Rfam assigns this 81-nucleotide RNA from Pogona vitticeps to the family "mir-26 microRNA precursor family". A search with the family's covariance model found it, with a score of 84 bits. Taxonomically the source falls in Pogona (Eukaryota, Opisthokonta, Dipnotetrapodomorpha, Squamata).

RNA sequence: CUUCGGCCUGGUUCAAGUAAUCCAGGAUAGGCUGUUACUAGUCAGCGCGGCCUAUUCUUGAUUACUUGUUUCAGGAGGUGG
Numbered sequence: 001c002u003u004c005g006g007c008c009u010g011g012u013u014c015a016a017g018u019a020a021u022c023c024a025g026g027a028u029a030g031g032c033u034g035u036u037a038c039u040a041g042u043c044a045g046c047g048c049g050g051c052c053u054a055u056u057c058u059u060g061a062u063u064a065c066u067u068g069u070u071u072c073a074g075g076a077g078g079u080g081g
Base pairs, nucleotide, nucleotide: 002080004078007075008074009073010072011071014068015067016066017065018064019063020062021061022060024058025057026056027055028054029053030052031051032050033049